[Rfam]
RNA sequence: CGCCAGGGGGAAAGAAAAAAUAUAAAUUAAAGCACAUAGUCUGGGCAAGCAGGGAGCUAGAACGAUUCGCAGUUAACCCUAGCC
Numbered sequence: 001c002g003c004c005a006g007g008g009g010g011a012a013a014g015a016a017a018a019a020a021u022a023u024a025a026a027u028u029a030a031a032g033c034a035c036a037u038a039g040u041c042u043g044g045g046c047a048a049g050c051a052g053g054g055a056g057c058u059a060g061a062a063c064g065a066u067u068c069g070c071a072g073u074u075a076a077c078c079c080u081a082g083c084c
Base pairs, nucleotide, nucleotide: 002083003082005080006079007078008077
A member of the RNA family "HIV gag stem loop 3 (GSL3)" from Lentivirus humimdef1, 84 nucleotides long. By type it is a cis-regulatory element. The literature on the family includes a 2004 paper in J Mol Biol by Damgaard et al., "RNA interactions in the 5' region of the HIV-1 genome". The sequence is in the family's curated seed alignment. Rfam links the family to the GO term viral RNA genome packaging. From the family's description: This family consists of several HIV gag stem loop 3 (GSL3) sequences. GSL3 is known to direct specific packaging of HIV-1 genomic RNA. Deletion of GSL3 leads to decreases in both viral RNA packaging and dimerisation.